RNA sequence: UGAGAUGAAAUUAACGUUUGAACAUGCAAUUUUACGAUGAUUUCAUAUCAUG
Numbered sequence: 001u002g003a004g005a006u007g008a009a010a011u012u013a014a015c016g017u018u019u020g021a022a023c024a025u026g027c028a029a030u031u032u033u034a035c036g037a038u039g040a041u042u043u044c045a046u047a048u049c050a051u052g
Base pairs, nucleotide, nucleotide: 001050002049003048005046006045007044008043009042010041011040012039013038015036016035017034018029019028020027